Shown here is a 140-nucleotide RNA sequence from Chenggangzhangella methanolivorans, a member of the family "Alphaproteobacterial sRNA BjrC1505". Pairs were carried over by alignment from the consensus structure. A search with the family's covariance model found it, with a score of 91 bits. Lineage of the source: Bacteria > Pseudomonadota > Alphaproteobacteria > Hyphomicrobiales > Chenggangzhangella. It is annotated as a small RNA.
[Rfam]
RNA sequence: CAUGGCGGUAACUUGGCGUUAACCUUUCCAGAUUAUACCCGAAGUCGGUCCAGUUUCUGGAUUGCGAGUGGUUCCUGUCCACUCUGUUUGACGCCUCCCUGUCAUCGACUUUCUCGGCCGCCUCGUGCGGCCGUUUUUUU
Number, nucleotide and partner (000 for none) at each position: 001c044002a000003u042004g000005g014006c000007g000008g000009u000010a000011a000012c000013u000014u005015g000016g036017c000018g000019u000020u035021a034022a033023c000024c031025u030026u000027u000028c000029c000030a025031g024032a000033u022034u021035a020036u016037a000038c000039c000040c000041g000042a003043a000044g001045u000046c000047g000048g062049u061050c060051c059052a000053g000054u000055u000056u000057c000058u000059g051060g050061a049062u048063u000064g000065c000066g084067a083068g082069u081070g080071g079072u000073u000074c000075c000076u000077g000078u000079c071080c070081a069082c068083u067084c066085u000086g000087u000088u000089u000090g103091a102092c101093g100094c000095c000096u000097c000098c000099c000100u093101g092102u091103c090104a000105u000106c000107g000108a000109c000110u000111u000112u000113c000114u000115c133116g132117g131118c130119c129120g128121c127122c000123u000124c000125g000126u000127g121128c120129g119130g118131c117132c116133g115134u000135u000136u000137u000138u000139u000140u000